[Rfam]
RNA sequence: UGUCCUUGCCCUCCUUGGGCGUUUCCUCCCUAGAUUCGACCGCGUCGUGCAAACGGGGCGGUCUUUUUUUGCCUAUU
Numbered sequence: 001u002g003u004c005c006u007u008g009c010c011c012u013c014c015u016u017g018g019g020c021g022u023u024u025c026c027u028c029c030c031u032a033g034a035u036u037c038g039a040c041c042g043c044g045u046c047g048u049g050c051a052a053a054c055g056g057g058g059c060g061g062u063c064u065u066u067u068u069u070u071g072c073c074u075a076u077u
Stems, first nucleotide, its partner, number of pairs: 008020004039062005045056003
Dot-bracket structure: .......((((.....))))..................(((((.(((......))).)))))...............
A member of the RNA family "Makes More Granules Regulator RNA (mmgR)" from Mesorhizobium sp. J18, 77 nucleotides long. A search with the family's covariance model found it, with a score of 56 bits. The family's RNA type in Rfam is small RNA. SuhB later renamed mmgR (makes more granules regulator) was a putative non-coding RNA found multiple times in the Agrobacterium tumefaciens genome and related alpha-proteobacteria.